Shown here is a 231-nucleotide RNA sequence from Smittium mucronatum, a member of the family "ACEA small nucleolar RNA U3". On this family, see Marz and Stadler, RNA Biol 2010: "Comparative analysis of eukaryotic U3 snoRNA". Rfam's curators write: Small nucleolar RNAs (snoRNAs) are involved in the processing and modification of rRNA in the nucleolus. There are two main classes of snoRNAs: the box C/D class, and the box H/ACA class. U3 snoRNA is a member of the box C/D class. Indeed, the box C/D element is a subset of the six short sequence elements found in all U3 snoRNAs, namely boxes A, A', B, C, C', and D. The U3 snoRNA secondary structure is characterised by a small 5' domain (with boxes A and A'), and a larger 3' domain (with boxes B, C, C', and D), the two domains being linked by a single-stranded hinge. Rfam links the family to the GO terms nucleolus and RNA processing. By type it is a C/D-box small nucleolar RNA. NCBI's taxonomy places the organism under Eukaryota, Opisthokonta, Kickxellomycotina, Legeriomycetaceae, Smittium. The base pairs follow the family's consensus structure, which is taken from published work.
[Rfam]
RNA sequence: UCGACUGUACUUACAAGGAUCUUGUAUACAGUAUAUAUCUUUGCCUUUGUUUCCGAACAAAGUCAUGUCAACCUGACUGGACGAUGAAUUAUACUGCACUGUUCGUAAAGGGAGGUGUGAGUUUAUUUCUUGGUCGGUUUCUUUGUAGAUUCCACAAACCAGAUUUAUUCUCGUUGAUGAUCUUGCGACUCUUUUUUGAGGUGCGAGGACGGAUGCAGAUUCUGACAGUCU
Numbered sequence: 001u002c003g004a005c006u007g008u009a010c011u012u013a014c015a016a017g018g019a020u021c022u023u024g025u026a027u028a029c030a031g032u033a034u035a036u037a038u039c040u041u042u043g044c045c046u047u048u049g050u051u052u053c054c055g056a057a058c059a060a061a062g063u064c065a066u067g068u069c070a071a072c073c074u075g076a077c078u079g080g081a082c083g084a085u086g087a088a089u090u091a092u093a094c095u096g097c098a099c100u101g102u103u104c105g106u107a108a109a110g111g112g113a114g115g116u117g118u119g120a121g122u123u124u125a126u127u128u129c130u131u132g133g134u135c136g137g138u139u140u141c142u143u144u145g146u147a148g149a150u151u152c153c154a155c156a157a158a159c160c161a162g163a164u165u166u167a168u169u170c171u172c173g174u175u176g177a178u179g180a181u182c183u184u185g186c187g188a189c190u191c192u193u194u195u196u197u198g199a200g201g202u203g204c205g206a207g208g209a210c211g212g213a214u215g216c217a218g219a220u221u222c223u224g225a226c227a228g229u230c231u
Stems, first nucleotide, its partner, number of pairs: 003039001006035001008033004016027001018025001043064001045062007075230005094218005099212006108184004118173003123167001186203002189200001191198001